Rfam assigns this 72-nucleotide RNA from Keratinibaculum paraultunense to the family "tRNA".

RNA sequence: UCCGGGAUUGUGUAGCUGGUAGCACAUGUGACUCUGGAUCACAGAGCCUAGGUUCGAAUCCUAGUCCCGGAG
Numbered sequence: 001u002c003c004g005g006g007a008u009u010g011u012g013u014a015g016c017u018g019g020u021a022g023c024a025c026a027u028g029u030g031a032c033u034c035u036g037g038a039u040c041a042c043a044g045a046g047c048c049u050a051g052g053u054u055c056g057a058a059u060c061c062u063a064g065u066c067c068c069g070g071a072g
Stems, first nucleotide, its partner, number of pairs: 001071007010025004027043005048064005
It is annotated as a transfer RNA. Pairs were carried over by alignment from the consensus structure, which is taken from published work.